[Rfam]
The record is an 84-nucleotide RNA sequence from Pan troglodytes, which matches "mir-515 microRNA precursor family" in Rfam. The literature on the family includes a 2005 paper in Nat Genet by Bentwich et al., "Identification of hundreds of conserved and nonconserved human microRNAs". NCBI's taxonomy places the organism under Eukaryota, Opisthokonta, Sarcopterygii, Hominoidea, Pan.
RNA sequence: CCUCAGGCUGUGACACUCUAGAGGGAAGCGCUUUCUGUUUUCUGAAAAAGAAAGUGCAUCCUUUUAGAGUGUUACUGUUUGAGA
Numbered sequence: 001c002c003u004c005a006g007g008c009u010g011u012g013a014c015a016c017u018c019u020a021g022a023g024g025g026a027a028g029c030g031c032u033u034u035c036u037g038u039u040u041u042c043u044g045a046a047a048a049a050g051a052a053a054g055u056g057c058a059u060c061c062u063u064u065u066a067g068a069g070u071g072u073u074a075c076u077g078u079u080u081g082a083g084a
Stems, first nucleotide, its partner, number of pairs: 002083004007078002010075005016069003020065007028057008038049002